A member of the RNA family "FMN riboswitch aptamer (RFN element)" from Pontibacillus marinus, 144 nucleotides long. It scores 107 bits against the family's covariance model. Pairs were carried over by alignment from the consensus structure, which is taken from published work. The RFN element is a highly conserved domain that is found frequently in the 5'-untranslated regions of prokaryotic mRNAs that encode for flavin mononucleotide (FMN) biosynthesis and transport proteins.

[Rfam]
RNA sequence: GGAUGCCUUCGGGGUCGGGUGCAAAUCCCAACCGGCGGUGAUCAAGCUUGUCUUGCUAGCCCGCGACCCGCAUAGCACUGCUUUGCGGCUGAUUUGGUGAGAAACCAAAGCCGACGGUAACAGUCCGGAUGGGAGAAGGAAGUC
Numbered sequence: 001g002g003a004u005g006c007c008u009u010c011g012g013g014g015u016c017g018g019g020u021g022c023a024a025a026u027c028c029c030a031a032c033c034g035g036c037g038g039u040g041a042u043c044a045a046g047c048u049u050g051u052c053u054u055g056c057u058a059g060c061c062c063g064c065g066a067c068c069c070g071c072a073u074a075g076c077a078c079u080g081c082u083u084u085g086c087g088g089c090u091g092a093u094u095u096g097g098u099g100a101g102a103a104a105c106c107a108a109a110g111c112c113g114a115c116g117g118u119a120a121c122a123g124u125c126c127g128g129a130u131g132g133g134a135g136a137a138g139g140a141a142g143u144c
Stems, first nucleotide, its partner, number of pairs: 004141001006139005017029003031124002033113002035064004059111002068088002093109005115127003